[Rfam]
RNA sequence: ACCCCGUUGACGGAUUGAACGCUAACUGUGAGCGAGACACAGGCGGGGU
Numbered sequence: 001a002c003c004c005c006g007u008u009g010a011c012g013g014a015u016u017g018a019a020c021g022c023u024a025a026c027u028g029u030g031a032g033c034g035a036g037a038c039a040c041a042g043g044c045g046g047g048g049u
Base pairs, nucleotide, nucleotide: 001049002048003047004046005045006044007043011021012020017033023036026042027041028040029039030038
The family of this 49-nucleotide RNA is "DUF2693-FD RNA".
By type it is a small RNA.
DUF2693-FD RNA is a non-coding RNA (ncRNA) recognised in Bacteroides by a bioinformatic analisis by Zasha Weinberg. No recognised genes.
The base pairs follow the family's consensus structure, which is taken from published work.